[Rfam]
RNA sequence: AUAUUACUUUAAAACAAGUUCCGGAAAACUAUCUUUCUGUCAAGAGACUCACUGCCUGCUCGUUUUACUGGCUUACCUGCUUCAGAUAAGAUUUUAAUAAAAAAGGAGGGCCGGCAUCUCUUUCCAGACGGCCCUGAGCGGAUUGUGACACAACAUGGCACCUUGCCGGCGCUCUCUUAUUGUUUCAUGCGUGUGCCAUCGCUAUGGCGCAAUCAGAGCA
Numbered sequence: 001a002u003a004u005u006a007c008u009u010u011a012a013a014a015c016a017a018g019u020u021c022c023g024g025a026a027a028a029c030u031a032u033c034u035u036u037c038u039g040u041c042a043a044g045a046g047a048c049u050c051a052c053u054g055c056c057u058g059c060u061c062g063u064u065u066u067a068c069u070g071g072c073u074u075a076c077c078u079g080c081u082u083c084a085g086a087u088a089a090g091a092u093u094u095u096a097a098u099a100a101a102a103a104a105g106g107a108g109g110g111c112c113g114g115c116a117u118c119u120c121u122u123u124c125c126a127g128a129c130g131g132c133c134c135u136g137a138g139c140g141g142a143u144u145g146u147g148a149c150a151c152a153a154c155a156u157g158g159c160a161c162c163u164u165g166c167c168g169g170c171g172c173u174c175u176c177u178u179a180u181u182g183u184u185u186c187a188u189g190c191g192u193g194u195g196c197c198a199u200c201g202c203u204a205u206g207g208c209g210c211a212a213u214c215a216g217a218g219c220a
Base pairs, nucleotide, nucleotide: 013184014183016181017180023038026035027034042178043177045175046174047173049148050147051146052145056141057140058139059138061136064090066088067087069084070083071080072079107135108134109133110132111131112130156168157167158166159165193210194209195208196207197206
Annotation
The record is a 220-nucleotide RNA from Salmonella enterica, which matches "Salmonella enterica sRNA STnc470" in Rfam. By type it is a small RNA. It is one of the family's seed sequences.